[Rfam]
Nucleotides: 075
Stems, first nucleotide, its partner, number of pairs: 014026001016024001033069001038065002043060003047056003
Number, partner (000 for none) and nucleotide at each position: 001000c002000u003000u004000c005000a006000c007000c008000g009000a010000a011000c012000c013000c014026a015000a016024c017000a018000a019000c020000a021000a022000c023000g024016g025000a026014u027000g028000c029000u030000c031000g032000a033069c034000a035000u036000c037000c038065c039064g040000g041000c042000c043060c044059u045058g046000c047056c048055c049054a050000u051000a052000c053000g054049u055048g056047g057000c058045c059044a060043g061000c062000a063000g064039c065038g066000c067000c068000u069033g070000c071000g072000c073000c074000u075000c

This 75-nucleotide sequence from Streptomyces sp. Rer75 belongs to the Rfam family "ASpks TB sRNA". The match comes from Rfam's covariance-model search (76 bits). The family's consensus secondary structure is taken from published work. The organism belongs to Streptomyces, within Bacteria.